[Rfam]
RNA: transfer-messenger RNA
RNA sequence: GGGGGCGACCUGGCUUCGACGCGGGUAGCAAAACCUAAGGGGCAUGCCGAGGUGCAGUGACCUCGUUAAUCACGCUGCAACAUUAUAGUUGCCAACGACGACAACUACGCACUCGCUGCUUAAAACCCAGUAGGGUGCCGUCUGACUGAAGCCGUGCUUGUGCGUUCAGAUUUCAGGCGUCGAUUCUCACAAGAUCGCGGUGAAGUUCUCCCAGGGCAGACCCGCUAAAACUUUACUGGGAUCGCCGUAUGUUUUCCUUGCCCGUCGGGUAGCAUGCGGUUAAAUUAAUGACUGGGCUAUGCAUGUAGAACCGAAGGCGGAGUACUUGUGGACGCGGGUUCGAUUCCCGCCGCCUCCACCA
Dot-bracket structure: (((((((............((((((((......(((..((..((((([[[[[(((((((.]]]]].......)))))))................................((.((((.........)))).))....((((((......(.....[[[[[[...).......))))))........]]]]]].(.((((........[[[[.........)))).)..........]]]]..((((((((((.(((..[[[[[[[))).)))))))))).........]]].]]]]...))))).....))..))).....))))))))...(((((.......))))))))))))....